[Rfam]
Description
The record is a 402-nucleotide sequence from Amaricoccus solimangrovi, which matches "Bacterial RNase P class A" in Rfam. The source organism's lineage runs through Bacteria, Pseudomonadati, Alphaproteobacteria, Paracoccaceae and Amaricoccus. It is annotated as a ribozyme. About the family: Ribonuclease P (RNase P) is a ubiquitous endoribonuclease, found in archaea, bacteria and eukarya as well as chloroplasts and mitochondria. Clan: RNaseP clan.
RNA sequence: GCGGAUGGCCGGAUGGCCGCGGCCCGGGUGACCGGGGCGAGGAAAGUCCGGACUCCGGGAAGGAAUGGCGGCGGGUAACGCCCGCCCGGGGCAACCCGAGGGAAAGCGCCACAGAGAUCAGACCGCCUCUCCGCGUGGGAGUCGUCCCGCGCGGGGUGGUAAGGGUGAAACGGUGGGGUAAGAGCCCACCGCGCCGGCGGCGACGUCGGUGGCACGGCAAGCCCCGCCAGGAGCAAGGCCAAAUAGGGAUCGCGUGGGAUUUCAUCCCAGGGUUCUUCCACCCGAGCGAUCCGGGUUGGCCGCUGGAGCCCGUUGGCGACGACGGGCCUAGAGGAAUGGCCAUCGGCUCGGACCAAGCGAUUGGCCGAGCUACAGAAUCCGGCUUACAGGCCAUCCGCGCGC
Numbered sequence: 001g002c003g004g005a006u007g008g009c010c011g012g013a014u015g016g017c018c019g020c021g022g023c024c025c026g027g028g029u030g031a032c033c034g035g036g037g038c039g040a041g042g043a044a045a046g047u048c049c050g051g052a053c054u055c056c057g058g059g060a061a062g063g064a065a066u067g068g069c070g071g072c073g074g075g076u077a078a079c080g081c082c083c084g085c086c087c088g089g090g091g092c093a094a095c096c097c098g099a100g101g102g103a104a105a106g107c108g109c110c111a112c113a114g115a116g117a118u119c120a121g122a123c124c125g126c127c128u129c130u131c132c133g134c135g136u137g138g139g140a141g142u143c144g145u146c147c148c149g150c151g152c153g154g155g156g157u158g159g160u161a162a163g164g165g166u167g168a169a170a171c172g173g174u175g176g177g178g179u180a181a182g183a184g185c186c187c188a189c190c191g192c193g194c195c196g197g198c199g200g201c202g203a204c205g206u207c208g209g210u211g212g213c214a215c216g217g218c219a220a221g222c223c224c225c226g227c228c229a230g231g232a233g234c235a236a237g238g239c240c241a242a243a244u245a246g247g248g249a250u251c252g253c254g255u256g257g258g259a260u261u262u263c264a265u266c267c268c269a270g271g272g273u274u275c276u277u278c279c280a281c282c283c284g285a286g287c288g289a290u291c292c293g294g295g296u297u298g299g300c301c302g303c304u305g306g307a308g309c310c311c312g313u314u315g316g317c318g319a320c321g322a323c324g325g326g327c328c329u330a331g332a333g334g335a336a337u338g339g340c341c342a343u344c345g346g347c348u349c350g351g352a353c354c355a356a357g358c359g360a361u362u363g364g365c366c367g368a369g370c371u372a373c374a375g376a377a378u379c380c381g382g383c384u385u386a387c388a389g390g391c392c393a394u395c396c397g398c399g400c401g402c
Base pairs, nucleotide, nucleotide: 001398002397003396004395005394006393007392008391009390010389011387012344013343014342015341016340017339018338020039021038023036024035025034026033027032044385045384046383048382049381050380051379052378053233054232055231056230062277063276066229067228068227069226070225071085072084073083074082075081086100087098088097089096090095101224102223106222107221108218109217110216123164124163125160126159127158129156130155131154132153133152134151135150136149137148138147139146140145172190173189174188175187176186177185191213192211193210194209195208196207197206198205199204237301238300239299240298247292248291249290250289251288252287270283271282272281273280308327309326310325311324312323313322314321315320